Shown here is a 162-nucleotide RNA sequence from Eremococcus coleocola, a member of the family "Listeria sRNA rli38". For this family Rfam cites "The Listeria transcriptional landscape from saprophytism to virulence" (Toledo-Arana et al., Nature, 2009).

RNA sequence: GAAGAAUGGGAAUAAAAUAUAAAAUUAACUUGAAGUGAAAUGGUUGAUUUUACGGUAUUUAAGAGUAUUAUAAAAAGCUAAAAAUCAAUAUUAUUUAUUGGUUACCCACCAAAUACCCCACCAGAUUAUUUUAAAACAACAAUAAUCUGGUGGGGUAUAUUA
Numbered sequence: 001g002a003a004g005a006a007u008g009g010g011a012a013u014a015a016a017a018u019a020u021a022a023a024a025u026u027a028a029c030u031u032g033a034a035g036u037g038a039a040a041u042g043g044u045u046g047a048u049u050u051u052a053c054g055g056u057a058u059u060u061a062a063g064a065g066u067a068u069u070a071u072a073a074a075a076a077g078c079u080a081a082a083a084a085u086c087a088a089u090a091u092u093a094u095u096u097a098u099u100g101g102u103u104a105c106c107c108a109c110c111a112a113a114u115a116c117c118c119c120a121c122c123a124g125a126u127u128a129u130u131u132u133a134a135a136a137c138a139a140c141a142a143u144a145a146u147c148u149g150g151u152g153g154g155g156u157a158u159a160u161u162a
Stems, first nucleotide, its partner, number of pairs: 008106002011103002046086006052079001055078002058075003062071001087096001113158018